[Rfam]
RNA sequence: UUUCUGUUUUUAGCGCCAGAACUUGUAAAUUUAAUAUAAAUUCAAGUUGACGAGGUCAGAGUUAAUCGAAUAUUCGGCGGGUGCUCUGCGGUGUAUUUACCAUCGUAAAAUUUCUUCAAAACUUAGAAGUGAUUCUUUGAACAAAGGGAAAUUUGAGUAAAUAA
Number, nucleotide and partner (000 for none) at each position: 001u000002u000003u000004c000005u000006g000007u000008u000009u000010u000011u000012a000013g000014c000015g000016c000017c000018a000019g000020a048021a047022c046023u045024u044025g043026u000027a041028a000029a000030u000031u000032u000033a000034a000035u000036a000037u000038a000039a000040a000041u027042u000043c025044a024045a023046g022047u021048u020049g000050a000051c000052g000053a000054g000055g000056u000057c088058a087059g086060a085061g084062u000063u000064a000065a000066u077067c076068g075069a074070a000071u000072a000073u000074u069075c068076g067077g066078c000079g000080g000081g000082u000083g000084c061085u060086c059087u058088g057089c105090g104091g103092u102093g101094u000095a000096u000097u000098u000099a000100c000101c093102a092103u091104c090105g089106u000107a000108a000109a153110a152111u151112u150113u149114c148115u000116u000117c000118a000119a000120a000121a000122c139123u000124u000125a136126g135127a134128a133129g000130u000131g000132a000133u128134u127135c126136u125137u000138u000139g122140a000141a000142c000143a000144a000145a000146g000147g000148g114149a113150a112151a111152u110153u109154u000155g000156a000157g000158u000159a000160a000161a000162u000163a000164a000